[Rfam]
A member of the RNA family "Small nucleolar RNA U61" from Papaver somniferum, 87 nucleotides long.
Its family is annotated with RNA processing and nucleolus in the Gene Ontology.
Pairs were carried over by alignment from the consensus structure, which was predicted with WAR.
By type it is a C/D-box small nucleolar RNA.
NCBI's taxonomy places the organism under Eukaryota, Viridiplantae, Embryophyta, Papaveroideae, Papaver.
Nucleotides: 087
Base pairs, nucleotide, nucleotide: 001087002086003085004084
Number, partner (000 for none) and nucleotide at each position: 001087u002086u003085g004084c005000a006000g007000u008000g009000a010000g011000g012000a013000a014000c015000a016000a017000a018000u019000c020000u021000g022000u023000g024000c025000u026000a027000g028000a029000u030000g031000u032000u033000g034000g035000a036000u037000c038000u039000u040000a041000u042000u043000g044000a045000u046000c047000u048000u049000u050000c051000g052000g053000u054000g055000a056000u057000g058000g059000c060000u061000a062000c063000a064000c065000a066000a067000c068000c069000u070000c071000u072000a073000a074000g075000a076000a077000g078000u079000u080000c081000u082000g083000a084004g085003c086002a087001a